[Rfam]
RNA sequence: UCCAUCGUGAGGUGGAAUCUGAAGGAAGCUUAAGGCAAAAUCUCGGUCUGAUGAACAAGAACCAGAUAAGAGGCUGAAUUGGGAUGGAUGAGUUUGCGUAACAAAACGAAGUCCAACACUACCCGAAUCCCAUAUUGUCAUUUCUCAAAUUAAUUUAGCCCAAAACCGAUAAAAUU
Dot-bracket structure: ((((((....))))))...........(.((....(.....((.(((.((.............((((.....((.....(((((.((((..((((........))))...)))).............)))))....)).))))..)).))....).)).........)....)).)
RNA: Group II catalytic intron D1-D4-3
Organism: Thermoanaerobacter brockii